[Rfam]
RNA sequence: AUACUCAGGUAAUCGCUGCAUGAAUUUUUCAUGCAGAGGAAAGUCCAUGCUCACACAAACUGAGAUGUUUGUAGUGUUCGUGCUUGACGAAAUCAUAAGUCAAGGUAGCUUUUAGGGCUAACGGCAGGAUACGUUCCUAAGUCAUCUAUGAUAUGGAACUACAUCCUUGAAAGUGCCACAGUGACGUAGCUAGAAUGGAAACAUUUUAGGUGGAACGAGGUAAACCCCACGAGUGAGCAACCCAAAUAAUGGUAGGGGCAUCCUUUAGUAGGGAAUUCAACCGAAAGAGGGACAAGUCUUUUGACUUGUAGAUAGAUGAUUACAACCGGCGUACGAGGAAUGACCACCGUUUGCAGUACAAUGGAACAGAACAUGGCUUAUCGAG
Numbered sequence: 001a002u003a004c005u006c007a008g009g010u011a012a013u014c015g016c017u018g019c020a021u022g023a024a025u026u027u028u029u030c031a032u033g034c035a036g037a038g039g040a041a042a043g044u045c046c047a048u049g050c051u052c053a054c055a056c057a058a059a060c061u062g063a064g065a066u067g068u069u070u071g072u073a074g075u076g077u078u079c080g081u082g083c084u085u086g087a088c089g090a091a092a093u094c095a096u097a098a099g100u101c102a103a104g105g106u107a108g109c110u111u112u113u114a115g116g117g118c119u120a121a122c123g124g125c126a127g128g129a130u131a132c133g134u135u136c137c138u139a140a141g142u143c144a145u146c147u148a149u150g151a152u153a154u155g156g157a158a159c160u161a162c163a164u165c166c167u168u169g170a171a172a173g174u175g176c177c178a179c180a181g182u183g184a185c186g187u188a189g190c191u192a193g194a195a196u197g198g199a200a201a202c203a204u205u206u207u208a209g210g211u212g213g214a215a216c217g218a219g220g221u222a223a224a225c226c227c228c229a230c231g232a233g234u235g236a237g238c239a240a241c242c243c244a245a246a247u248a249a250u251g252g253u254a255g256g257g258g259c260a261u262c263c264u265u266u267a268g269u270a271g272g273g274a275a276u277u278c279a280a281c282c283g284a285a286a287g288a289g290g291g292a293c294a295a296g297u298c299u300u301u302u303g304a305c306u307u308g309u310a311g312a313u314a315g316a317u318g319a320u321u322a323c324a325a326c327c328g329g330c331g332u333a334c335g336a337g338g339a340a341u342g343a344c345c346a347c348c349g350u351u352u353g354c355a356g357u358a359c360a361a362u363g364g365a366a367c368a369g370a371a372c373a374u375g376g377c378u379u380a381u382c383g384a385g
Base pairs, nucleotide, nucleotide: 004385005384006383007381009323010322011321012320013319014318016036017035018034019033020032021031041379042378043377045376046375047374048373049372050237051236052235053234054233055072056071057070058069059068060067078232079231080230081229082228083104084103085102086101087100088099105122106120107119108118109117110116111115123227124226126167127166128165129164134158135157136156137155141152142151143150173225174224175221176220177219190209191208192207193206194205195204196203197202241257242256243255261291262290263289264288265287266286292309293308294307295306296305297304326364327363328362331359332358333357334356
A member of the RNA family "Bacterial RNase P class B" from Oceanobacillus halophilus, 385 nucleotides long.
Ribonuclease P (RNase P) is a ubiquitous endoribonuclease, found in archaea, bacteria and eukarya as well as chloroplasts and mitochondria.
The family's RNA type in Rfam is ribozyme.
The source organism's lineage runs through Bacteria, Bacillota, Caryophanales, Bacillaceae and Oceanobacillus.